[Rfam]
RNA: Bacterial large signal recognition particle RNA
RNA sequence: CCGUGCUAGAUGGGGAGCUGGCGGUGCCCUGUAACUCGCAAUCCGCCUUAGCGGGGUCGAAUUCCUGUCCGAGGUCAUUUCUGUGUGGGGUCUGGUCCAUACAAGCGGUGUUGACGAACAGGUCCUGCGCAACGGAAACCUCCGAACCGUGUCAGGUCCUGACGGAAGCAGCACUAAGGAGACUCUUCCGUGUGCCGCAGGGGUGCCUGAUCUGAGUCGAUUGUAUGGGGUUCCGCCCAGGCAGAAUUGAUCGAUGUCAGGUGCACGG
Numbered sequence: 001c002c003g004u005g006c007u008a009g010a011u012g013g014g015g016a017g018c019u020g021g022c023g024g025u026g027c028c029c030u031g032u033a034a035c036u037c038g039c040a041a042u043c044c045g046c047c048u049u050a051g052c053g054g055g056g057u058c059g060a061a062u063u064c065c066u067g068u069c070c071g072a073g074g075u076c077a078u079u080u081c082u083g084u085g086u087g088g089g090g091u092c093u094g095g096u097c098c099a100u101a102c103a104a105g106c107g108g109u110g111u112u113g114a115c116g117a118a119c120a121g122g123u124c125c126u127g128c129g130c131a132a133c134g135g136a137a138a139c140c141u142c143c144g145a146a147c148c149g150u151g152u153c154a155g156g157u158c159c160u161g162a163c164g165g166a167a168g169c170a171g172c173a174c175u176a177a178g179g180a181g182a183c184u185c186u187u188c189c190g191u192g193u194g195c196c197g198c199a200g201g202g203g204u205g206c207c208u209g210a211u212c213u214g215a216g217u218c219g220a221u222u223g224u225a226u227g228g229g230g231u232u233c234c235g236c237c238c239a240g241g242c243a244g245a246a247u248u249g250a251u252c253g254a255u256g257u258c259a260g261g262u263g264c265a266c267g268g
Stems, first nucleotide, its partner, number of pairs: 001268006009058003012030004017025003035055005064261004069256001073252005080245005086239004094231001097228006105222001107218003116212002119209005124201006130192002133190005140181004149174004157166003